[Rfam]
The record is a 315-nucleotide RNA sequence from Penicillium chermesinum, which matches "A. fumigatus sRNA Afu_309" in Rfam.
RNA sequence: UUCAACCGUACACAACCAAGACUUGUGUGCAGAUUUCCUGGUCACGGAGGAGCUUGUCUCUUCUGUGUGCCGGUUGAGAGCUGUGCAGUUCGACGAUUUAAGGGGCCAUUCACUUUUCCAUGUAUGGCACUUCACGGUAUCCGGUCGACAAGUCUAAGAUUGAAGGUCCGCGCUGGGGUGUGGCCUGGGUCUUGAGCUCCCUCUGGUGAGCUCGGCUUGGGUGCCCGGUUUGUGGACGGCGUCAUAUUCCUAAUCCCUUUGCCGACUGGCCAUUGGCCUGUGAGGUUGGGGAAUAACCAUGACUAGCCUACAUUC
Numbered sequence: 001u002u003c004a005a006c007c008g009u010a011c012a013c014a015a016c017c018a019a020g021a022c023u024u025g026u027g028u029g030c031a032g033a034u035u036u037c038c039u040g041g042u043c044a045c046g047g048a049g050g051a052g053c054u055u056g057u058c059u060c061u062u063c064u065g066u067g068u069g070c071c072g073g074u075u076g077a078g079a080g081c082u083g084u085g086c087a088g089u090u091c092g093a094c095g096a097u098u099u100a101a102g103g104g105g106c107c108a109u110u111c112a113c114u115u116u117u118c119c120a121u122g123u124a125u126g127g128c129a130c131u132u133c134a135c136g137g138u139a140u141c142c143g144g145u146c147g148a149c150a151a152g153u154c155u156a157a158g159a160u161u162g163a164a165g166g167u168c169c170g171c172g173c174u175g176g177g178g179u180g181u182g183g184c185c186u187g188g189g190u191c192u193u194g195a196g197c198u199c200c201c202u203c204u205g206g207u208g209a210g211c212u213c214g215g216c217u218u219g220g221g222u223g224c225c226c227g228g229u230u231u232g233u234g235g236a237c238g239g240c241g242u243c244a245u246a247u248u249c250c251u252a253a254u255c256c257c258u259u260u261g262c263c264g265a266c267u268g269g270c271c272a273u274u275g276g277c278c279u280g281u282g283a284g285g286u287u288g289g290g291g292a293a294u295a296a297c298c299a300u301g302a303c304u305a306g307c308c309u310a311c312a313u314u315c
Stems, first nucleotide, its partner, number of pairs: 019155008027086006034079004038073005043067002048064003052060001094147005101132003105128003166233002172229006188217004194213006200206002238308003241303005254292005261286003268278004
The source organism's lineage runs through Eukaryota, Dikarya, Ascomycota, Pezizomycotina and Penicillium. The family's RNA type in Rfam is small RNA.